This 47-nucleotide RNA from Taxus chinensis belongs to the Rfam family "Guanidine-II riboswitch aptamer (mini-ykkC)". From the family's description: Simpler in structure and has fewer highly conserved nucleotide positions than the ykkC-yxkD leader.
RNA sequence: CACCCGGGACGUCCCGGGUGCAUUUCAUUUUUUAGGGGACGUCCCCA
Numbered sequence: 001c002a003c004c005c006g007g008g009a010c011g012u013c014c015c016g017g018g019u020g021c022a023u024u025u026c027a028u029u030u031u032u033u034a035g036g037g038g039a040c041g042u043c044c045c046c047a
Base pairs, nucleotide, nucleotide: 001020002019003018004017005016006015007014008013035046036045037044038043